[Rfam]
Rfam assigns this 75-nucleotide RNA from Streptomyces yokosukanensis to the family "ASpks TB sRNA". The family's RNA type in Rfam is antisense RNA. On this family, see Arnvig and Young, Mol Microbiol 2009: "Identification of small RNAs in Mycobacterium tuberculosis". NCBI's taxonomy places the organism under Bacteria, Bacillati, Actinomycetota, Streptomycetaceae, Streptomyces.
RNA sequence: CUUGAUCGACCCCAGCAGCAACGGCUGACCGCCCAACCGGUCCUGCCCGUACGUCGCCAGCAGCGCCUGCGCCUC
Number, nucleotide and partner (000 for none) at each position: 001c000002u000003u000004g000005a000006u000007c000008g000009a000010c000011c000012c000013c000014a026015g025016c024017a000018g000019c000020a000021a000022c000023g000024g016025c015026u014027g000028a000029c000030c000031g000032c000033c069034c000035a000036a000037c000038c065039g064040g000041u000042c000043c060044u059045g058046c000047c056048c000049g054050u000051a000052c000053g000054u049055c000056g047057c000058c045059a044060g043061c000062a000063g000064c039065g038066c000067c000068u000069g033070c000071g000072c000073c000074u000075c000